TPP riboswitch aptamer (THI element): a 105-nucleotide sequence from Yersinia pestis. The base pairs follow the family's consensus structure, which is taken from published work. Rfam describes the family as follows. Vitamin B(1) in its active form thiamin pyrophosphate (TPP) is an essential coenzyme that is synthesised by coupling of pyrimidine and thiazole moieties in bacteria.
RNA sequence: CAUUCUGACUCGGGGUGCCUGCCACAAUGCGGUGGUAAGGCUGAGAGAUGACCCGUAUUACCUGAUCUGGAUUAUGCCAGCGUAGGGAAGUCUCGGCACCGUAGG
Numbered sequence: 001c002a003u004u005c006u007g008a009c010u011c012g013g014g015g016u017g018c019c020u021g022c023c024a025c026a027a028u029g030c031g032g033u034g035g036u037a038a039g040g041c042u043g044a045g046a047g048a049u050g051a052c053c054c055g056u057a058u059u060a061c062c063u064g065a066u067c068u069g070g071a072u073u074a075u076g077c078c079a080g081c082g083u084a085g086g087g088a089a090g091u092c093u094c095g096g097c098a099c100c101g102u103a104g105g
Base pairs, nucleotide, nucleotide: 007092008091009090010089011055012054013053014052017041018040019039020038061086062085063084064083067080068079069078070077